[Rfam]
RNA: 6S / SsrS RNA
Organism: Woeseia oceani
RNA sequence: CGUCUCCUGCGGUGUUCGAUACCGUUCUGGAAACCCCUCGACCCUAACUAUUUACAUCGGGGUCGUGCACUGUCGGCAGCAUGUGUGCAAACCCACUACAUGUGGAUAGCCUGGUGCUGUCACGGCUGGCCCCACCUGUUGCUCCGGUUCGAGAGCGACGACCGGUAACGGCACAGGCGGGAGGCGC
Numbered sequence: 001c002g003u004c005u006c007c008u009g010c011g012g013u014g015u016u017c018g019a020u021a022c023c024g025u026u027c028u029g030g031a032a033a034c035c036c037c038u039c040g041a042c043c044c045u046a047a048c049u050a051u052u053u054a055c056a057u058c059g060g061g062g063u064c065g066u067g068c069a070c071u072g073u074c075g076g077c078a079g080c081a082u083g084u085g086u087g088c089a090a091a092c093c094c095a096c097u098a099c100a101u102g103u104g105g106a107u108a109g110c111c112u113g114g115u116g117c118u119g120u121c122a123c124g125g126c127u128g129g130c131c132c133c134a135c136c137u138g139u140u141g142c143u144c145c146g147g148u149u150c151g152a153g154a155g156c157g158a159c160g161a162c163c164g165g166u167a168a169c170g171g172c173a174c175a176g177g178c179g180g181g182a183g184g185c186g187c
Base pairs, nucleotide, nucleotide: 002185003184004183005182006181007180008179009178010177012174013173014172015171017170018169035155037153039151040150041149042147043146059133060132061131063129064128065126066125075121076120077119078118079117080116081115087110088109093105094104095103096102